The family of this 76-nucleotide RNA sequence from Pseudonocardia oroxyli is "6C RNA".
It scores 76 bits against the family's covariance model.
Rfam links the family to the GO term sporulation.
Rfam classes the family as a cis-regulatory element.

Nucleotides: 076
Base pairs, nucleotide, nucleotide: 003035004032005031006030007029008028009027010026011025012024013023037072038071039070040069041068042067043066044065045064046063047062048061049060
Number, partner (000 for none) and nucleotide at each position: 001000c002000c003035g004032g005031g006030u007029u008028c009027a010026g011025u012024c013023c014000g015000a016000c017000c018000c019000c020000c021000c022000g023013g024012g025011g026010c027009u028008g029007a030006a031005c032004c033000g034000c035003c036000u037072g038071a039070c040069g041068g042067c043066c044065c045064u046063c047062g048061c049060c050000a051000a052000u053000c054000c055000c056000c057000c058000c059000u060049g061048g062047c063046g064045a065044g066043g067042g068041c069040c070039g071038u072037c073000c074000c075000u076000u